[Rfam]
RNA sequence: GCCUAUGAAGAUAUAAUCCAACUUGUUUGAGGUGUUGUGGAACCAAGAUCCUGUUUUACAGGGUGAACCUACUUGGUGAAACUUCAUUCAUAUGAUAUCAAUGGGUUUAACUGAGGC
Numbered sequence: 001g002c003c004u005a006u007g008a009a010g011a012u013a014u015a016a017u018c019c020a021a022c023u024u025g026u027u028u029g030a031g032g033u034g035u036u037g038u039g040g041a042a043c044c045a046a047g048a049u050c051c052u053g054u055u056u057u058a059c060a061g062g063g064u065g066a067a068c069c070u071a072c073u074u075g076g077u078g079a080a081a082c083u084u085c086a087u088u089c090a091u092a093u094g095a096u097a098u099c100a101a102u103g104g105g106u107u108u109a110a111c112u113g114a115g116g117c
Base pairs, nucleotide, nucleotide: 001117002116003115049063050062051061052060053059

Shown here is a 117-nucleotide RNA sequence from Trifolium subterraneum, a member of the family "Small nucleolar RNA Z278". The base pairs follow the family's consensus structure, which was predicted with PFOLD. Rfam links the family to the GO terms nucleolus and RNA processing. Rfam classes the family as a C/D-box small nucleolar RNA. The literature on the family includes a 2003 paper in Nucleic Acids Res by Chen et al., "The high diversity of snoRNAs in plants: identification and comparative study of 120 snoRNA genes from Oryza sativa". A search with the family's covariance model found it, with a score of 69 bits. snoZ278 is a C/D box small nucleolar RNA. Its methylation guide targets have not been reported.